Overview: This 306-nucleotide RNA sequence from Purpureocillium takamizusanense belongs to the Rfam family "Fungal signal recognition particle RNA".

[Rfam]
RNA sequence: GGCUGUCAUGGCUCAACGGCGAAGCACCUCGCACUUAUUUCGCAUGUCCCAACUCUGUUGGUUCGUCCCUCCACCACCCGACCCCGUAAGAUCCCCCCCGCUGGCGCCCAGCCCGAACGCCGCGGUGGCCGCCCGCUCGCGCAGGCAACUCGCGACCGUCGGUGCGUGCCCUAAGCACUUGGAGAUGACCCUUGAGGGAGGAUUCACUCUGCAGAGACCUCUCCCCCGUCGCGUGGCGGGCUGGAUCACGACCGCGGGGGGUUUGGGAUGGAGGGGUGAGAUGGAGAAUGCGACGCCUUCUUCUUU
Numbered sequence: 001g002g003c004u005g006u007c008a009u010g011g012c013u014c015a016a017c018g019g020c021g022a023a024g025c026a027c028c029u030c031g032c033a034c035u036u037a038u039u040u041c042g043c044a045u046g047u048c049c050c051a052a053c054u055c056u057g058u059u060g061g062u063u064c065g066u067c068c069c070u071c072c073a074c075c076a077c078c079c080g081a082c083c084c085c086g087u088a089a090g091a092u093c094c095c096c097c098c099c100g101c102u103g104g105c106g107c108c109c110a111g112c113c114c115g116a117a118c119g120c121c122g123c124g125g126u127g128g129c130c131g132c133c134c135g136c137u138c139g140c141g142c143a144g145g146c147a148a149c150u151c152g153c154g155a156c157c158g159u160c161g162g163u164g165c166g167u168g169c170c171c172u173a174a175g176c177a178c179u180u181g182g183a184g185a186u187g188a189c190c191c192u193u194g195a196g197g198g199a200g201g202a203u204u205c206a207c208u209c210u211g212c213a214g215a216g217a218c219c220u221c222u223c224c225c226c227c228g229u230c231g232c233g234u235g236g237c238g239g240g241c242u243g244g245a246u247c248a249c250g251a252c253c254g255c256g257g258g259g260g261g262u263u264u265g266g267g268a269u270g271g272a273g274g275g276g277u278g279a280g281a282u283g284g285a286g287a288a289u290g291c292g293a294c295g296c297c298u299u300c301u302u303c304u305u306u
Stems, first nucleotide, its partner, number of pairs: 001013003018303002021300004027295001029293005036288001038286001063279011075267001080093002083090001095260007103252001105250002108244008117234004122229004127169001128165001130164004134158002137155005143150002171175001181224005191216003198209003
Dot-bracket structure: (((.......)))....((.((((..(.(((((..(.(........................(((((((((((.(....((.(......).)).(((((((.(.((.((((((((.((((.((((.((.((((((.(((((.((....))))))).))..)))))...).(...).....(((((.....(((....(((......)))....)))...))))).)))).))))..))))))))....)).).)))))))......).)))))))))))......).)))))).).)))).))...

The family is grouped with related families in Rfam's "SRP clan". The base pairs follow the family's consensus structure, which is taken from published work. The literature on the family includes a 2003 paper in Nucleic Acids Res by Rosenblad et al., "SRPDB: Signal Recognition Particle Database".